Rfam assigns this 72-nucleotide sequence from Psylliodes chrysocephalus to the family "mir-10 microRNA precursor family".
[Rfam]
RNA sequence: UUGAAUGAACCCGUAGAUCCGAACUUGUGUUUUUUAUUUGAUCACGAGUUCGCUUUUACAGGUACUUUCUGG
Numbered sequence: 001u002u003g004a005a006u007g008a009a010c011c012c013g014u015a016g017a018u019c020c021g022a023a024c025u026u027g028u029g030u031u032u033u034u035u036a037u038u039u040g041a042u043c044a045c046g047a048g049u050u051c052g053c054u055u056u057u058a059c060a061g062g063u064a065c066u067u068u069c070u071g072g
Base pairs, nucleotide, nucleotide: 003069004068005067007065010062011061015057016056017055020052021051022050023049024048025047026046027045028044029043
Background:
The source organism's lineage runs through Eukaryota, Insecta, Cucujiformia, Galerucinae and Psylliodes. The literature on the family includes a 2001 paper in Science by Lee and Ambros, "An extensive class of small RNAs in Caenorhabditis elegans".